[Rfam]
RNA sequence: GUGUGUUUUAAUGAUGGCCUGUGUCUAAACUCUUCAGAGAGAGCAGGCUUGAUGCUUACACCC
Numbered sequence: 001g002u003g004u005g006u007u008u009u010a011a012u013g014a015u016g017g018c019c020u021g022u023g024u025c026u027a028a029a030c031u032c033u034u035c036a037g038a039g040a041g042a043g044c045a046g047g048c049u050u051g052a053u054g055c056u057u058a059c060a061c062c063c
Base pairs, nucleotide, nucleotide: 001063003061004060005059016049017048018047019046020045021044024042025041030039031038032037
A member of the RNA family "Selenocysteine insertion sequence 1" from Megalops atlanticus, 63 nucleotides long. Rfam's curators write: The incorporation of selenocysteine into a protein sequence is directed by an in-frame UGA codon (usually a stop codon) within the coding region of the mRNA. Selenoprotein mRNAs contain a conserved secondary structure in the 3' UTR that is required for the distinction of UGA stop from UGA selenocysteine. Taxonomically the source falls in Megalops (Eukaryota, Gnathostomata, Actinopteri, Teleostei). Rfam classes the family as a cis-regulatory element.